Shown here is a 142-nucleotide RNA sequence from Halonatronomonas betaini, a member of the family "c-di-AMP riboswitch aptamer (ydaO/yuaA leader)".
RNA sequence: AAAAUUUAACUGCUUAAUCUUCUCAUGGAGAGUGGGGGACCCGAUUUUAGGUGAAUCAGUAGAUGAUUUUACUGUAGGGCUAGAAAUUCCCUUCGGCCCGAACCAUUAAAGCUAACCUCAUCAGCAGCGUAUACGAAGGGAA
Numbered sequence: 001a002a003a004a005u006u007u008a009a010c011u012g013c014u015u016a017a018u019c020u021u022c023u024c025a026u027g028g029a030g031a032g033u034g035g036g037g038g039a040c041c042c043g044a045u046u047u048u049a050g051g052u053g054a055a056u057c058a059g060u061a062g063a064u065g066a067u068u069u070u071a072c073u074g075u076a077g078g079g080c081u082a083g084a085a086a087u088u089c090c091c092u093u094c095g096g097c098c099c100g101a102a103c104c105a106u107u108a109a110a111g112c113u114a115a116c117c118u119c120a121u122c123a124g125c126a127g128c129g130u131a132u133a134c135g136a137a138g139g140g141a142a
Base pairs, nucleotide, nucleotide: 011126012125013124014123018031019030020029032121033120034119035118036117037116043047049106050104051103057074058073059072060071077099078098079097080096